[Rfam]
RNA: RNase MRP
Organism: Cystoisospora suis
RNA sequence: GGAGCAGCCGGCAAGUUGCGUCAUAGCGUCCCUACGAGGGUGAAGUGCGGCAGCUGGUGCGGUGGUCGUCAAGGCUGUCUGCAUCGCGCUUCACUUCCCCUACACAUGCUAUGGGGAAAGUCUCCGUGCCAUGGAAUCGAGAGGAUUGAUGAGAAAAUCAUGGAAACCUCCAAGCUUAGUCGCCUGAUGGCAACAUCACUCUUGUGACGGUCUUCUGGCUGAAGAAAGGGUUGUGCGACGGCUAGAGGUGUAUCGCAAUUGCCGCUUUGAAGCGCGGCGCCUCUUAGGAUUGAGUGAAUGCAACUGGUGGGAUAAUGGUGGUCUUCCUCCAGACCCACUCACAGAAUGGAGCUUACGUCCGUGCUGUUC
Numbered sequence: 001g002g003a004g005c006a007g008c009c010g011g012c013a014a015g016u017u018g019c020g021u022c023a024u025a026g027c028g029u030c031c032c033u034a035c036g037a038g039g040g041u042g043a044a045g046u047g048c049g050g051c052a053g054c055u056g057g058u059g060c061g062g063u064g065g066u067c068g069u070c071a072a073g074g075c076u077g078u079c080u081g082c083a084u085c086g087c088g089c090u091u092c093a094c095u096u097c098c099c100c101u102a103c104a105c106a107u108g109c110u111a112u113g114g115g116g117a118a119a120g121u122c123u124c125c126g127u128g129c130c131a132u133g134g135a136a137u138c139g140a141g142a143g144g145a146u147u148g149a150u151g152a153g154a155a156a157a158u159c160a161u162g163g164a165a166a167c168c169u170c171c172a173a174g175c176u177u178a179g180u181c182g183c184c185u186g187a188u189g190g191c192a193a194c195a196u197c198a199c200u201c202u203u204g205u206g207a208c209g210g211u212c213u214u215c216u217g218g219c220u221g222a223a224g225a226a227a228g229g230g231u232u233g234u235g236c237g238a239c240g241g242c243u244a245g246a247g248g249u250g251u252a253u254c255g256c257a258a259u260u261g262c263c264g265c266u267u268u269g270a271a272g273c274g275c276g277g278c279g280c281c282u283c284u285u286a287g288g289a290u291u292g293a294g295u296g297a298a299u300g301c302a303a304c305u306g307g308u309g310g311g312a313u314a315a316u317g318g319u320g321g322u323c324u325u326c327c328u329c330c331a332g333a334c335c336c337a338c339u340c341a342c343a344g345a346a347u348g349g350a351g352c353u354u355a356c357g358u359c360c361g362u363g364c365u366g367u368u369c
Base pairs, nucleotide, nucleotide: 002369003368004367005366006365007364008363009361010360011359014305015304016303017302018301019300021114022113023112024111025110026109027108043095118354119353120352122351123350124349125348135147136146137145138144228280230278234276235275236274237273243269244268245267246266255262256261307338308337309336310335311334